The family of this 370-nucleotide RNA sequence from Octodon degus is "Bag-1 internal ribosome entry site (IRES)". On this family, see Coldwell et al., Oncogene 2001: "The p36 isoform of BAG-1 is translated by internal ribosome entry following heat shock". Gene Ontology term of the family: ribosome binding. Lineage of the source: Eukaryota > Bilateria > Vertebrata > Euteleostomi > Octodon.
RNA sequence: UGGGCGGGCCACCGGCGCGGCUCUGGCUGAGCACGGCGGCGCGCCAAGACCGCGAGGCGACCAGGAGCGGCUGGGCCGCCGGAGGCGCGCCCCUCCGCGCUCCCGGGAGCCGCGCCGGUCGGAGUCCUCGGCCAGCCGCGGCGCUCUUUCCUCUCAGCGCCCGUCUGUUCGCAGUGCAGCCGGGGGACAUGACCGACCCACCAGGGGCGCCGCCGCCGGCGCUCGCCAGCCGCGGAUGAAGAAGAAAGCCAGUCCCCGCUCCACCCGGAGCAAGAAGGAGACCCAGACCAAGGAGGUGACCCAGACCGAGGAGGUGACCCAGGCCGAGGAGGUGACCAGGGGCAAGGAAGUGAUCCAGGCGGAGGAGGUG
Numbered sequence: 001u002g003g004g005c006g007g008g009c010c011a012c013c014g015g016c017g018c019g020g021c022u023c024u025g026g027c028u029g030a031g032c033a034c035g036g037c038g039g040c041g042c043g044c045c046a047a048g049a050c051c052g053c054g055a056g057g058c059g060a061c062c063a064g065g066a067g068c069g070g071c072u073g074g075g076c077c078g079c080c081g082g083a084g085g086c087g088c089g090c091c092c093c094u095c096c097g098c099g100c101u102c103c104c105g106g107g108a109g110c111c112g113c114g115c116c117g118g119u120c121g122g123a124g125u126c127c128u129c130g131g132c133c134a135g136c137c138g139c140g141g142c143g144c145u146c147u148u149u150c151c152u153c154u155c156a157g158c159g160c161c162c163g164u165c166u167g168u169u170c171g172c173a174g175u176g177c178a179g180c181c182g183g184g185g186g187a188c189a190u191g192a193c194c195g196a197c198c199c200a201c202c203a204g205g206g207g208c209g210c211c212g213c214c215g216c217c218g219g220c221g222c223u224c225g226c227c228a229g230c231c232g233c234g235g236a237u238g239a240a241g242a243a244g245a246a247a248g249c250c251a252g253u254c255c256c257c258g259c260u261c262c263a264c265c266c267g268g269a270g271c272a273a274g275a276a277g278g279a280g281a282c283c284c285a286g287a288c289c290a291a292g293g294a295g296g297u298g299a300c301c302c303a304g305a306c307c308g309a310g311g312a313g314g315u316g317a318c319c320c321a322g323g324c325c326g327a328g329g330a331g332g333u334g335a336c337c338a339g340g341g342g343c344a345a346g347g348a349a350g351u352g353a354u355c356c357a358g359g360c361g362g363a364g365g366a367g368g369u370g
Base pairs, nucleotide, nucleotide: 020104026098027097038093039092041090042089043053044052061082062081064079067076068075144352146350147349148348149347150346166189167188168187169186170185205224206223207222208221209220210219211218212217258271259270260269261268